RNA sequence: CGAGCCCUGCCGCUGACCCGGGACCCCAGCGCAAUUGAACUGGCAGGGACGGGGGAACCACAUUUUCACGGCUUCAGCUGAGGCCUUGGGGUUAAGUCGUUUGCGUCCCGUCCUGCACGGUGGCGCACGGCCGGGUGUCUCCGACCCGAACCCGACAGCUCACCCCGCAGGCAUGGGAGAGGCAAUCA
Numbered sequence: 001c002g003a004g005c006c007c008u009g010c011c012g013c014u015g016a017c018c019c020g021g022g023a024c025c026c027c028a029g030c031g032c033a034a035u036u037g038a039a040c041u042g043g044c045a046g047g048g049a050c051g052g053g054g055g056a057a058c059c060a061c062a063u064u065u066u067c068a069c070g071g072c073u074u075c076a077g078c079u080g081a082g083g084c085c086u087u088g089g090g091g092u093u094a095a096g097u098c099g100u101u102u103g104c105g106u107c108c109c110g111u112c113c114u115g116c117a118c119g120g121u122g123g124c125g126c127a128c129g130g131c132c133g134g135g136u137g138u139c140u141c142c143g144a145c146c147c148g149a150a151c152c153c154g155a156c157a158g159c160u161c162a163c164c165c166c167g168c169a170g171g172c173a174u175g176g177g178a179g180a181g182g183c184a185a186u187c188a
Stems, first nucleotide, its partner, number of pairs: 001170001005048008050167005059088002089153003097130004133147004
This 188-nucleotide RNA from Pseudarthrobacter sp. BIM B-2242 belongs to the Rfam family "c-di-AMP riboswitch aptamer (ydaO/yuaA leader)". Rfam describes the family as follows. This family represents a conserved RNA structure found upstream of the ydaO and yuaA genes in Bacillus subtilis and related genes in other bacteria. The ydaO/yuaA element is thought to act as a genetic 'off' switch for the ydaO and yuaA genes in its native state. It is believed that the element may be triggered during osmotic shock leading to activation of ydaO, a predicted amino acid transporter gene, and members of the yuaA-yubG operon which code for KtrA and KtrB K+ transporters. The match comes from Rfam's covariance-model search (52 bits). The source organism's lineage runs through Bacteria, Bacillati, Actinomycetota, Actinomycetes and Pseudarthrobacter.